Record summary: L17 ribosomal protein downstream element: a 74-nucleotide RNA sequence from Vagococcus allomyrinae. It scores 61 bits against the family's covariance model. It is annotated as a cis-regulatory element.
RNA sequence: AGAGUGUUAUGAUGUUGGAGUCUAGGACUCCGAGUCUAGCUCGUCGCUGCUCUCUGGUAAUGUGUUACCAGAGA
Number, nucleotide and partner (000 for none) at each position: 001a000002g042003a041004g040005u039006g000007u000008u000009a000010u000011g036012a035013u034014g000015u000016u000017g031018g030019a029020g028021u027022c026023u000024a000025g000026g022027a021028c020029u019030c018031c017032g000033a000034g013035u012036c011037u000038a000039g005040c004041u003042c002043g000044u000045c000046g000047c000048u000049g000050c000051u074052c073053u072054c071055u070056g069057g068058u067059a066060a000061u000062g000063u000064g000065u000066u059067a058068c057069c056070a055071g054072a053073g052074a051